[Rfam]
RNA sequence: UUAAUACCAAACCCUAUCUCGACCUCCACAUGGUGAUUGCUGGGAGUUCUUUCUUAAUGGAAAACUGCAGACGGAGAAGG
Number, nucleotide and partner (000 for none) at each position: 001u000002u000003a000004a000005u000006a000007c000008c000009a000010a000011a000012c000013c080014c079015u078016a000017u076018c000019u074020c073021g072022a034023c033024c032025u000026c000027c000028a000029c000030a000031u000032g024033g023034u022035g000036a000037u000038u000039g000040c000041u000042g000043g000044g000045a066046g065047u064048u063049c000050u061051u060052u000053c059054u000055u000056a000057a000058u000059g053060g051061a050062a000063a048064a047065c046066u045067g000068c000069a000070g000071a000072c021073g020074g019075a000076g017077a000078a015079g014080g013

Rfam assigns this 80-nucleotide RNA sequence from Hermetia illucens to the family "drz-agam-1 ribozyme". Lineage of the source: Eukaryota > Allotriocarida > Aparaglossata > Brachycera > Hermetia. The literature on the family includes a 2009 paper in Science by Webb et al., "Widespread occurrence of self-cleaving ribozymes".